[Rfam]
RNA sequence: CCUGUGGUGGCAGUGUGGUUAGCUGGUUGUCCGUCACCGUAUACCAACCAACUGGCUACCCGCAAAGC
Number, nucleotide and partner (000 for none) at each position: 001c000002c067003u066004g000005u064006g063007g000008u000009g061010g060011c000012a000013g000014u000015g059016u058017g057018g056019u055020u054021a053022g052023c000024u050025g049026g048027u047028u046029g045030u000031c000032c000033g000034u000035c000036a000037c000038c000039g000040u000041a000042u000043a000044c000045c029046a028047a027048c026049c025050a024051a000052c022053u021054g020055g019056c018057u017058a016059c015060c010061c009062g000063c006064a005065a000066a003067g002068c000
Rfam assigns this 68-nucleotide RNA from Patiria miniata to the family "mir-34 microRNA precursor family". Human mir-34a was discovered computationally and later experimentally verified. Rfam links the family to the GO terms RISC complex and miRNA-mediated post-transcriptional gene silencing. The organism belongs to Patiria, within Eukaryota. Clan: mir-34 clan. For this family Rfam cites "Embryonic stem cell-specific MicroRNAs" (Houbaviy et al., Dev Cell, 2003). The family has 113 seed sequences and 2,256 matches in Rfam 15.1.